A member of the RNA family "Acido-Lenti-1 RNA" from bacterium K02(2017), 46 nucleotides long.
[Rfam]
RNA sequence: CCCAGGGUUUACACCCUGGGCUAGGUAGCGUCGCCACUUCGUGGCU
Numbered sequence: 001c002c003c004a005g006g007g008u009u010u011a012c013a014c015c016c017u018g019g020g021c022u023a024g025g026u027a028g029c030g031u032c033g034c035c036a037c038u039u040c041g042u043g044g045c046u
Base pairs, nucleotide, nucleotide: 001020002019003018004017005016006015007014008013033045034044035043036042037041
Notes:
The family's consensus secondary structure is taken from published work. It is annotated as a small RNA. The family has 87 seed sequences and 2,607 matches in Rfam 15.1.